[Rfam]
RNA: U4 spliceosomal RNA
Organism: Sarcoptes scabiei
RNA sequence: UGCUUUGCGCAGUGGCAGUACCGCAAGCAAUGAGCUUUUAGCGAGCUGCGGUUAUUGCUAGUUGAAAACUAAACCCAAUUCCUCGCCAUUUGAUCGUGAAAUACCGAUUAAAUAGGCAAUUUUUGGAGGCCUCUUGGCC
Numbered sequence: 001u002g003c004u005u006u007g008c009g010c011a012g013u014g015g016c017a018g019u020a021c022c023g024c025a026a027g028c029a030a031u032g033a034g035c036u037u038u039u040a041g042c043g044a045g046c047u048g049c050g051g052u053u054a055u056u057g058c059u060a061g062u063u064g065a066a067a068a069c070u071a072a073a074c075c076c077a078a079u080u081c082c083u084c085g086c087c088a089u090u091u092g093a094u095c096g097u098g099a100a101a102u103a104c105c106g107a108u109u110a111a112a113u114a115g116g117c118a119a120u121u122u123u124u125g126g127a128g129g130c131c132u133c134u135u136g137g138c139c
Stems, first nucleotide, its partner, number of pairs: 020052005026047003034042003085117003088113009128139004